[Rfam]
RNA sequence: AACAGGCGAGGUCGGAAAUGGUUCCCGACACACCCGAAAGGGUACCUGAGAUGCAGGAUACACCGCCCUGCCGCUUGUU
Number, nucleotide and partner (000 for none) at each position: 001a079002a078003c077004a076005g075006g074007c073008g072009a000010g000011g029012u028013c027014g026015g025016a000017a000018a000019u065020g064021g063022u062023u000024c000025c015026c014027g013028a012029c011030a000031c048032a043033c042034c041035c040036g000037a000038a000039a000040g035041g034042g033043u032044a000045c000046c000047u000048g031049a000050g000051a000052u000053g071054c070055a069056g068057g067058a000059u000060a000061c000062a022063c021064c020065g019066c000067c057068c056069u055070g054071c053072c008073g007074c006075u005076u004077g003078u002079u001
RNA: skipping-rope RNA